[Rfam]
RNA: Bacterial large subunit ribosomal RNA, nucleotides 1344 to 1943
RNA sequence: GACAAACAGGGUGAGAAACCCUGUCGCCGAAAGUCCAAGGGUUCCUGCUUAAAGCUAAUCUGAGCAGGGUAAGCCGGCCCCUAAGUCGAGGCUGAAAAGCGUAGACGAUGGGAACCAGGUUAAUAUUCCUGGGCCAGGAGGAUGUGACGGAUUGUGGCGGCGUGCGUCCCUUAUCGGAUUGGGGCGUAUCCAAGACAGUCCCUGGAAAUAGCCCUCCACCAGACCGUACCCUAAACCGACACAGGUGGACUGGUAGAGCAUACCAAGGCGCUUGAGAGAACGAUGUUGAAGGAACUCGGCAAAAUACCUCCGUAAGUUCGCGAGAAGGAGGCCCGGCGCACGAGCGUCGGGGGCACAAACCAGGGGGUGGCGACUGUUUACUAAAAACACAGGGCUCUGCGAAGUCGCAAGACGACGUAUAGGGUCUGACGCCUGCCCGGUGCCGGAAGGUUAAAAGGAGGAGUGAGAGCUCCGAAUUGAAGCCCCGGUAAACGGCGGCCGUAACUAUAACGGUCCUAAGGUAGCGAAAUUCCUUGUCGGGUAAGUUCCGACCUGCACGAAUGGCGUAACGACUUCCCCGCUGUCUCCAACAUCGACUCA
Numbered sequence: 001g002a003c004a005a006a007c008a009g010g011g012u013g014a015g016a017a018a019c020c021c022u023g024u025c026g027c028c029g030a031a032a033g034u035c036c037a038a039g040g041g042u043u044c045c046u047g048c049u050u051a052a053a054g055c056u057a058a059u060c061u062g063a064g065c066a067g068g069g070u071a072a073g074c075c076g077g078c079c080c081c082u083a084a085g086u087c088g089a090g091g092c093u094g095a096a097a098a099g100c101g102u103a104g105a106c107g108a109u110g111g112g113a114a115c116c117a118g119g120u121u122a123a124u125a126u127u128c129c130u131g132g133g134c135c136a137g138g139a140g141g142a143u144g145u146g147a148c149g150g151a152u153u154g155u156g157g158c159g160g161c162g163u164g165c166g167u168c169c170c171u172u173a174u175c176g177g178a179u180u181g182g183g184g185c186g187u188a189u190c191c192a193a194g195a196c197a198g199u200c201c202c203u204g205g206a207a208a209u210a211g212c213c214c215u216c217c218a219c220c221a222g223a224c225c226g227u228a229c230c231c232u233a234a235a236c237c238g239a240c241a242c243a244g245g246u247g248g249a250c251u252g253g254u255a256g257a258g259c260a261u262a263c264c265a266a267g268g269c270g271c272u273u274g275a276g277a278g279a280a281c282g283a284u285g286u287u288g289a290a291g292g293a294a295c296u297c298g299g300c301a302a303a304a305u306a307c308c309u310c311c312g313u314a315a316g317u318u319c320g321c322g323a324g325a326a327g328g329a330g331g332c333c334c335g336g337c338g339c340a341c342g343a344g345c346g347u348c349g350g351g352g353g354c355a356c357a358a359a360c361c362a363g364g365g366g367g368u369g370g371c372g373a374c375u376g377u378u379u380a381c382u383a384a385a386a387a388c389a390c391a392g393g394g395c396u397c398u399g400c401g402a403a404g405u406c407g408c409a410a411g412a413c414g415a416c417g418u419a420u421a422g423g424g425u426c427u428g429a430c431g432c433c434u435g436c437c438c439g440g441u442g443c444c445g446g447a448a449g450g451u452u453a454a455a456a457g458g459a460g461g462a463g464u465g466a467g468a469g470c471u472c473c474g475a476a477u478u479g480a481a482g483c484c485c486c487g488g489u490a491a492a493c494g495g496c497g498g499c500c501g502u503a504a505c506u507a508u509a510a511c512g513g514u515c516c517u518a519a520g521g522u523a524g525c526g527a528a529a530u531u532c533c534u535u536g537u538c539g540g541g542u543a544a545g546u547u548c549c550g551a552c553c554u555g556c557a558c559g560a561a562u563g564g565c566g567u568a569a570c571g572a573c574u575u576c577c578c579c580g581c582u583g584u585c586u587c588c589a590a591c592a593u594c595g596a597c598u599c600a
Stems, first nucleotide, its partner, number of pairs: 006024006025270004033250004039230002044068006053061002075226003080111002085106003089102001091100003115132005135222001137220002140217003144213001152208002156201002162190001236245002252264004273600004281595008290586003307331005316321001332351008352356001364579004369574002371571002375389003392427008400417001404413003430566004435496003440493002442489005449484003455478002460473005497515006516520001526553001536552006